[Rfam]
RNA sequence: GUUGGCUACGGUGACAUGUGUCCCACCACCUUGGGUGGGAAGAUCGUGGGGACUCUGUGUGCGAUUGCAGGAGUAUUGACCAUUGCGCUACCUGUCCCUGUCAUUGUCUCGAAC
Numbered sequence: 001g002u003u004g005g006c007u008a009c010g011g012u013g014a015c016a017u018g019u020g021u022c023c024c025a026c027c028a029c030c031u032u033g034g035g036u037g038g039g040a041a042g043a044u045c046g047u048g049g050g051g052a053c054u055c056u057g058u059g060u061g062c063g064a065u066u067g068c069a070g071g072a073g074u075a076u077u078g079a080c081c082a083u084u085g086c087g088c089u090a091c092c093u094g095u096c097c098c099u100g101u102c103a104u105u106g107u108c109u110c111g112a113a114c
Stems, first nucleotide, its partner, number of pairs: 001114002005110001008107004013102004018097001020095002037077002040074001050062001
The family of this 114-nucleotide sequence from Chauna torquata is "Potassium channel RNA editing signal". A reference for the family is Bhalla et al. (2004), "Control of human potassium channel inactivation by editing of a small mRNA hairpin", Nat Struct Mol Biol. The source organism's lineage runs through Eukaryota, Eumetazoa, Gnathostomata, Amniota and Chauna. Rfam classes the family as a cis-regulatory element.